[Rfam]
Shown here is a 224-nucleotide RNA sequence from Papaver somniferum, a member of the family "Early nodulin 40". For this family Rfam cites "Identification of conserved secondary structures and expansion segments in enod40 RNAs reveals new enod40 homologues in plants" (Gultyaev and Roussis, Nucleic Acids Res, 2007). NCBI's taxonomy places the organism under Eukaryota, Spermatophyta, Mesangiospermae, Papaveraceae, Papaver. Rfam links the family to the GO term nodulation. The family's RNA type in Rfam is non-coding RNA gene.
RNA sequence: AUGGAGUUUGUCUGGCAGGAAUCUAUGCAUGGGUCUUGAGAAGCACGGAAUUUGGAGCGAGGAUAGCUAACUCCUUCCUCCAAAUUCCUCAGUUUGCUAUGGUUAAGCCAGUCAUUUUCAUCUACUUUCAGUGCGUUUCUAAGUGCACUGGAGUUACAAUUUCGGCUAUUUUAUAGCGAACCGGCAAGUCACAGUUCGGCAAUGGGUAUUCGGCUAUGGGUCUU
Numbered sequence: 001a002u003g004g005a006g007u008u009u010g011u012c013u014g015g016c017a018g019g020a021a022u023c024u025a026u027g028c029a030u031g032g033g034u035c036u037u038g039a040g041a042a043g044c045a046c047g048g049a050a051u052u053u054g055g056a057g058c059g060a061g062g063a064u065a066g067c068u069a070a071c072u073c074c075u076u077c078c079u080c081c082a083a084a085u086u087c088c089u090c091a092g093u094u095u096g097c098u099a100u101g102g103u104u105a106a107g108c109c110a111g112u113c114a115u116u117u118u119c120a121u122c123u124a125c126u127u128u129c130a131g132u133g134c135g136u137u138u139c140u141a142a143g144u145g146c147a148c149u150g151g152a153g154u155u156a157c158a159a160u161u162u163c164g165g166c167u168a169u170u171u172u173a174u175a176g177c178g179a180a181c182c183g184g185c186a187a188g189u190c191a192c193a194g195u196u197c198g199g200c201a202a203u204g205g206g207u208a209u210u211c212g213g214c215u216a217u218g219g220g221u222c223u224u
Stems, first nucleotide, its partner, number of pairs: 054081003092181006110171002208221004